[Rfam]
RNA sequence: CGAGAGAACUCCAGCUAAGGAACUCGGCAAAUUGACCCCGUAACUUCGGGAGAAGGGGUGCCCCAUUAUGGUGAUAGGACUUGCUCCUUGAGCCAGAAGGGGUCGCAGAGAAUAGUCCCAGGCGACUGUUUAUCAAAAACACAGCACUCUGCAAACACGUAAGUGGACGUAUAGGGUGUGACGCCUGCCCGGUGCCGGAAGGUUAAGAGGAGAGGUCAGCGCAAGCGAAGCUUUGAAUCGAAGCCCCGGUAAACGGCGGCCGUAACUAUAACGGUCCUAAGGUAGCGAAAUUCCUUGUCGGGUAAGUUCCGACCUGCACGAAUGGCGUAACGAUCUGGGAGCUGUCUCGGCUGGAGACUCG
Dot-bracket structure: ((((....((((((((.(((..............(((((....(....).....)))))(((((...............((.(((.....))).))..)))))(...).......(((((((((..(((.........)))..(((((((((...(((....)))...)..))))))))..((((.(((..(((((((..(((...((...(((((..((....))...)))))...))...))))))))..)))))((((((.......))))))(...).....(.........((((((.....))))))).........))))...)).)))))))....))).)))))))).))))
RNA: Bacterial large subunit ribosomal RNA, nucleotides 1652 to 2012